[Rfam]
RNA sequence: UCUAGGGAAGGGCCUAAUUUUGCACCCUGCUUGGCAAGUACGGCGGGGCGAAAACGGGGGAUCCAACUAUUUGGGGUGAAUUGUGGAUUUGCGCCCGCAAAUCCACAUAGGCAGGGUCAGGACUUUAGAUAGUCAUGACUUGAAAUGAAUGAUAUGCCGAAUCCGACAGCUAACCUCGUAGGCGAAUACUAAUGGCUUG
Numbered sequence: 001u002c003u004a005g006g007g008a009a010g011g012g013c014c015u016a017a018u019u020u021u022g023c024a025c026c027c028u029g030c031u032u033g034g035c036a037a038g039u040a041c042g043g044c045g046g047g048g049c050g051a052a053a054a055c056g057g058g059g060g061a062u063c064c065a066a067c068u069a070u071u072u073g074g075g076g077u078g079a080a081u082u083g084u085g086g087a088u089u090u091g092c093g094c095c096c097g098c099a100a101a102u103c104c105a106c107a108u109a110g111g112c113a114g115g116g117u118c119a120g121g122a123c124u125u126u127a128g129a130u131a132g133u134c135a136u137g138a139c140u141u142g143a144a145a146u147g148a149a150u151g152a153u154a155u156g157c158c159g160a161a162u163c164c165g166a167c168a169g170c171u172a173a174c175c176u177c178g179u180a181g182g183c184g185a186a187u188a189c190u191a192a193u194g195g196c197u198u199g
Stems, first nucleotide, its partner, number of pairs: 012183003018053006054179006064073002074164003082107010110158004
Dot-bracket structure: ...........(((...((((((........................))))))((((((....((......))(((.....((((((((((......))))))))))..((((.........................................))))...))).........)))))).)))................